[Rfam]
RNA sequence: GAUUCGCUGCGCGACUGGCGAUAGAUGGUGGGCUUGCCCUGCCUGAGGUGGUGAACCACCGGGAAGCGCAGCCCCGUUCGGGCCAAGGGUGGCCUGUGCGGGAACCGCCGUUCGCCUGGGCAGCCCUC
Numbered sequence: 001g002a003u004u005c006g007c008u009g010c011g012c013g014a015c016u017g018g019c020g021a022u023a024g025a026u027g028g029u030g031g032g033c034u035u036g037c038c039c040u041g042c043c044u045g046a047g048g049u050g051g052u053g054a055a056c057c058a059c060c061g062g063g064a065a066g067c068g069c070a071g072c073c074c075c076g077u078u079c080g081g082g083c084c085a086a087g088g089g090u091g092g093c094c095u096g097u098g099c100g101g102g103a104a105c106c107g108c109c110g111u112u113c114g115c116c117u118g119g120g121c122a123g124c125c126c127u128c
Stems, first nucleotide, its partner, number of pairs: 006072007015063002017116005048059004105123001107121003

Rfam assigns this 128-nucleotide RNA from Aquabacterium lacunae to the family "ZMP/ZTP riboswitch aptamer (pfl RNA motif)". The source organism's lineage runs through Bacteria, Pseudomonadota, Betaproteobacteria, Sphaerotilaceae and Aquabacterium.